[Rfam]
A member of the RNA family "Bacillaceae-1 RNA" from Bacillus sp. NRRL B-14911, 67 nucleotides long. The family's consensus secondary structure is taken from published work. Rfam's curators put it in the seed alignment.
RNA sequence: CCUUAAGGAACGCAGACUAAAAACGCCACGUCCUGCUGCAACGUCUGCAUGACCCCCAUCCUGGGGG
Numbered sequence: 001c002c003u004u005a006a007g008g009a010a011c012g013c014a015g016a017c018u019a020a021a022a023a024c025g026c027c028a029c030g031u032c033c034u035g036c037u038g039c040a041a042c043g044u045c046u047g048c049a050u051g052a053c054c055c056c057c058a059u060c061c062u063g064g065g066g067g
Stems, first nucleotide, its partner, number of pairs: 012048006025039002029035001053067005